[Rfam]
RNA: Iron response element I
Organism: Myotis davidii
RNA sequence: CUAUCUCUUGCUUCAACAGUGUUUGGAUGGACCAA
Numbered sequence: 001c002u003a004u005c006u007c008u009u010g011c012u013u014c015a016a017c018a019g020u021g022u023u024u025g026g027a028u029g030g031a032c033c034a035a
Stems, first nucleotide, its partner, number of pairs: 002034001006031003010028001012027005017021001